tRNA: a 73-nucleotide sequence from Vagococcus entomophilus. The family's RNA type in Rfam is transfer RNA.

RNA sequence: GGGCCGUUAGCUCAGUUGGUAGAGCAGCUGACUCUUAAUCAGCGGGUCGCGGGUUCGAACCCCUCACGGCCCA
Numbered sequence: 001g002g003g004c005c006g007u008u009a010g011c012u013c014a015g016u017u018g019g020u021a022g023a024g025c026a027g028c029u030g031a032c033u034c035u036u037a038a039u040c041a042g043c044g045g046g047u048c049g050c051g052g053g054u055u056c057g058a059a060c061c062c063c064u065c066a067c068g069g070c071c072c073a
Stems, first nucleotide, its partner, number of pairs: 001072007010025004027043005049065001051063003